[Rfam]
Nucleotides: 124
Base pairs, nucleotide, nucleotide: 002056003055004054005053006052007051014044015043016042017041018040019039020038021037023036026034069117070116072114073113076110077109078108079107085103086102087101089100091098092097
Number, partner (000 for none) and nucleotide at each position: 001000a002056g003055g004054u005053c006052a007051u008000u009000u010000c011000a012000a013000a014044g015043a016042g017041a018040g019039c020038u021037u022000a023036u024000g025000g026034g027000a028000c029000c030000a031000a032000a033000g034026c035000a036023g037021g038020a039019g040018c041017u042016c043015u044014u045000a046000a047000c048000g049000c050000u051007a052006u053005g054004a055003c056002c057000u058000a059000a060000g061000a062000c063000u064000g065000a066000a067000g068000u069117u070116c071000c072114c073113c074000a075000c076110a077109g078108g079107a080000u081000g082000u083000a084000c085103c086102a087101g088000a089100u090000c091098c092097u093000c094000a095000c096000c097092a098091g099000u100089g101087c102086u103085g104000u105000u106000u107079u108078c109077c110076u111000g112000a113073g114072g115000a116070g117069a118000c119000a120000u121000a122000a123000a124000a